[Rfam]
RNA sequence: CUCGGUCCUCGGUAGUGGCCAGCGGGUGAGAACUCCCCCGAUGGCUUCGAUCGAAGACCGGC
Numbered sequence: 001c002u003c004g005g006u007c008c009u010c011g012g013u014a015g016u017g018g019c020c021a022g023c024g025g026g027u028g029a030g031a032a033c034u035c036c037c038c039c040g041a042u043g044g045c046u047u048c049g050a051u052c053g054a055a056g057a058c059c060g061g062c
Stems, first nucleotide, its partner, number of pairs: 002061006009054005017046005023040004028035002
RNA: Actino-pnp RNA
Organism: Acidipropionibacterium jensenii